[Rfam]
RNA sequence: GGGCGGCCUGCGCCGAGUCCGGUGCGCCCACGCGGCAACUCCGGAGCCGGGGACCCACCUUGAUCCUUGGGGUGAAUCGGUCCCGUACAAGUGCACAACGUACGAGACCGUAGGGCAGCCCUUCCGAACCAUCCGCCCGAACCCGACAGCUAACCCGGUAGGCGGCAUACGGAAGGAGCG
Numbered sequence: 001g002g003g004c005g006g007c008c009u010g011c012g013c014c015g016a017g018u019c020c021g022g023u024g025c026g027c028c029c030a031c032g033c034g035g036c037a038a039c040u041c042c043g044g045a046g047c048c049g050g051g052g053a054c055c056c057a058c059c060u061u062g063a064u065c066c067u068u069g070g071g072g073u074g075a076a077u078c079g080g081u082c083c084c085g086u087a088c089a090a091g092u093g094c095a096c097a098a099c100g101u102a103c104g105a106g107a108c109c110g111u112a113g114g115g116c117a118g119c120c121c122u123u124c125c126g127a128a129c130c131a132u133c134c135g136c137c138c139g140a141a142c143c144c145g146a147c148a149g150c151u152a153a154c155c156c157g158g159u160a161g162g163c164g165g166c167a168u169a170c171g172g173a174a175g176g177a178g179c180g
Base pairs, nucleotide, nucleotide: 011164012163013162014161018045019044020043021042022041046159047158048157049156050155051154056069057068070144071143072142078110079109080108081107113138114137115136116135
The family of this 180-nucleotide RNA from Streptomyces boluensis is "c-di-AMP riboswitch aptamer (ydaO/yuaA leader)". It scores 71 bits against the family's covariance model.